Shown here is a 122-nucleotide sequence from Pseudoselenomonas ruminantium, a member of the family "drum RNA". The match comes from Rfam's covariance-model search (57 bits). From the family's description: Firmicutes, Bacteroidetes (1 example), Proteobacteria (2 examples), Spirochaetes (2 examples).
[Rfam]
RNA sequence: UGGUGUUGAGUCAUGGGGGCGUGCUAGGAUGCGUUGCCAUGAUGAGCCACGUUUCCGGGCUUGCACAUUGCCACGACCUAGCUUAUGCCAUGAAAUAGUUGGCUGACAGAAAAUGUGUAAAA
Numbered sequence: 001u002g003g004u005g006u007u008g009a010g011u012c013a014u015g016g017g018g019g020c021g022u023g024c025u026a027g028g029a030u031g032c033g034u035u036g037c038c039a040u041g042a043u044g045a046g047c048c049a050c051g052u053u054u055c056c057g058g059g060c061u062u063g064c065a066c067a068u069u070g071c072c073a074c075g076a077c078c079u080a081g082c083u084u085a086u087g088c089c090a091u092g093a094a095a096u097a098g099u100u101g102g103c104u105g106a107c108a109g110a111a112a113a114u115g116u117g118u119a120a121a122a
Stems, first nucleotide, its partner, number of pairs: 001049004011042006018035005024081004064117003087103003